The record is a 120-nucleotide sequence from Virgisporangium aliadipatigenens, which matches "Guanidine-I riboswitch aptamer" in Rfam. A search with the family's covariance model found it, with a score of 67 bits. The organism belongs to Virgisporangium, within Bacteria.

RNA sequence: GUGAGGCGCGUCUAGGGUUCCGCCGCCGUCGCGCGACGGCAGGGUCUGGUCCGAGAGACGAGGCGCGGGCGUACACGGCGUGCGUUCUGCGUUCCACGGCGGGACAAAAGCCCGGGAGAU
Numbered sequence: 001g002u003g004a005g006g007c008g009c010g011u012c013u014a015g016g017g018u019u020c021c022g023c024c025g026c027c028g029u030c031g032c033g034c035g036a037c038g039g040c041a042g043g044g045u046c047u048g049g050u051c052c053g054a055g056a057g058a059c060g061a062g063g064c065g066c067g068g069g070c071g072u073a074c075a076c077g078g079c080g081u082g083c084g085u086u087c088u089g090c091g092u093u094c095c096a097c098g099g100c101g102g103g104a105c106a107a108a109a110g111c112c113c114g115g116g117a118g119a120u
Stems, first nucleotide, its partner, number of pairs: 007062001009060004015052002020049002022046001023043002025040004063093001064091005095115001097118001101113003